[Rfam]
RNA: c-di-GMP-I riboswitch aptamer
RNA sequence: GUAUUCCGAGGACUCACCUGUGUGAAAACCAGGGUCGCAAAGCUACGGGCCUGCCGCGCAAUCGCUGCGUAACGGUCGCCGGGCUGCAAAC
Numbered sequence: 001g002u003a004u005u006c007c008g009a010g011g012a013c014u015c016a017c018c019u020g021u022g023u024g025a026a027a028a029c030c031a032g033g034g035u036c037g038c039a040a041a042g043c044u045a046c047g048g049g050c051c052u053g054c055c056g057c058g059c060a061a062u063c064g065c066u067g068c069g070u071a072a073c074g075g076u077c078g079c080c081g082g083g084c085u086g087c088a089a090a091c
Stems, first nucleotide, its partner, number of pairs: 013037001017033004022029002041085004046081003049076003056070004